[Rfam]
RNA: Y RNA
Organism: Aotus nancymaae
RNA sequence: GGCUGGUCUGAAGGUAGCAGGUUAUCUCAACUGGUCAUAGUUGGUUACGAUUGCACUCCUUGUUCUGCUCUUUCCUCCCUUCUCACUACUGCACUUAACUAGUCUUAU
Dot-bracket structure: (((((((..((..((((..((..................(..((....................))..)............))..))...))..)).)))))))....